[Rfam]
RNA sequence: AGGAGGAACAAAAACAGUGGCUGCAGCCAGCUCUGGAGCCCGGGAUUCAGCUCUUGCAGUAACUAAGGAGCUUUCAGUCUGCAGGGCCUGGAUGCUCCGGGCGCGG
Numbered sequence: 001a002g003g004a005g006g007a008a009c010a011a012a013a014a015c016a017g018u019g020g021c022u023g024c025a026g027c028c029a030g031c032u033c034u035g036g037a038g039c040c041c042g043g044g045a046u047u048c049a050g051c052u053c054u055u056g057c058a059g060u061a062a063c064u065a066a067g068g069a070g071c072u073u074u075c076a077g078u079c080u081g082c083a084g085g086g087c088c089u090g091g092a093u094g095c096u097c098c099g100g101g102c103g104c105g106g
Base pairs, nucleotide, nucleotide: 002098003097004096005095007093009090010089019079020078021077022076023075025074026073029072030071031070032069033068034067037064041059043057

The family of this 106-nucleotide RNA sequence from Nyctereutes procyonoides is "mir-8834 microRNA precursor family".
NCBI's taxonomy places the organism under Eukaryota, Gnathostomata, Tetrapoda, Boreoeutheria, Nyctereutes.